[Rfam]
RNA: ZMP/ZTP riboswitch aptamer (pfl RNA motif)
Organism: Flintibacter faecis
RNA sequence: AACACGCGGUGUAACUGACGGAAGUGGAACAGACCACGGGGAGCAUCGCCUGUGCUUUUCUGCCGACCGUCUGGGCGCACCGG
Dot-bracket structure: ..((.(((((((..(([[[[[..((((......)))).))..))))))).))........((((..]]]]]..))))......